[Rfam]
RNA sequence: UAAGUUGUCAAGACAAUCGCGGCUGGUGCUAGACACCAGAUGAGGAAAGUCCGGGCUCCAUAGGGCAGUGUGCUGGAUAACGUCCAGCGAGGGUGACCUUAGGGAUAGUGCCAUAGAGAUUUAGACCGCCUGACAUGUCAGGUAAGGGUGGAAAGGUGCGGUAAGAGCGCACCAGCAGUCAGGUGACUGGCUGGCUUGGGUAAACCCCACACGGAGCAAGACCAAAUAGGGAAGGGAUGAUGCGGCCCGCGGAACCUUCCGGGUUGAGUCGCUUGAGCCGGCAGGCAACUGCCGUGCCUAGAUAAAUGAUUGUCGCCUCCGCUUGCGGAUGGAACAAAACUCGGCUUAUUGAUUGCUUAUUCA
Number, nucleotide and partner (000 for none) at each position: 001u359002a358003a357004g356005u355006u000007g353008u352009c351010a350011a349012g314013a313014c312015a311016a310017u309018c308019g000020c042021g041022g000023c039024u038025g037026g036027u035028g034029c000030u000031a000032g000033a000034c028035a027036c026037c025038a024039g023040a000041u021042g020043a000044g000045g000046a000047a347048a346049g345050u000051c344052c343053g342054g341055g340056c216057u215058c214059c213060a000061u000062a000063g248064g247065g246066c245067a000068g212069u211070g210071u209072g208073c087074u086075g085076g084077a083078u000079a000080a000081c000082g000083u077084c076085c075086a074087g073088c102089g100090a099091g098092g097093g000094u000095g000096a000097c092098c091099u090100u089101a000102g088103g207104g206105a000106u000107a000108g205109u204110g201111c200112c199113a000114u000115a000116g000117a000118g000119a000120u000121u000122u000123a000124g000125a000126c147127c146128g143129c142130c141131u140132g139133a138134c000135a000136u000137g000138u133139c132140a131141g130142g129143u128144a000145a000146g127147g126148g000149u000150g000151g000152a000153a000154a000155g173156g172157u171158g170159c169160g168161g000162u000163a000164a000165g000166a000167g000168c160169g159170c158171a157172c156173c155174a196175g000176c193177a192178g191179u190180c189181a188182g187183g000184u000185g000186a000187c182188u181189g180190g179191c178192u177193g176194g000195c000196u174197u000198g000199g112200g111201u110202a000203a000204a109205c108206c104207c103208c072209a071210c070211a069212c068213g059214g058215a057216g056217c000218a000219a000220g270221a269222c268223c266224a000225a000226a000227u000228a000229g000230g260231g259232a258233a257234g256235g255236g000237a000238u000239g000240a000241u251242g250243c249244g000245g066246c065247c064248c063249g243250c242251g241252g000253a000254a000255c235256c234257u233258u232259c231260c230261g000262g000263g000264u000265u000266g223267a000268g222269u221270c220271g000272c000273u000274u000275g000276a000277g297278c296279c294280g293281g292282c291283a290284g289285g000286c000287a000288a000289c284290u283291g282292c281293c280294g279295u000296g278297c277298c000299u000300a000301g000302a000303u000304a000305a000306a000307u000308g018309a017310u016311u015312g014313u013314c012315g000316c000317c000318u000319c000320c000321g000322c000323u000324u000325g000326c000327g000328g000329a000330u000331g000332g000333a000334a000335c000336a000337a000338a000339a000340c055341u054342c053343g052344g051345c049346u048347u047348a000349u011350u010351g009352a008353u007354u000355g005356c004357u003358u002359a001360u000361u000362c000363a000
This 363-nucleotide sequence from Pseudoselenomonas ruminantium belongs to the Rfam family "Bacterial RNase P class A".
The organism belongs to Pseudoselenomonas, within Bacteria.
The family's consensus secondary structure is taken from published work.
It is annotated as a ribozyme.
Gene Ontology terms of the family: ribonuclease P activity, dimeric ribonuclease P complex and tRNA processing.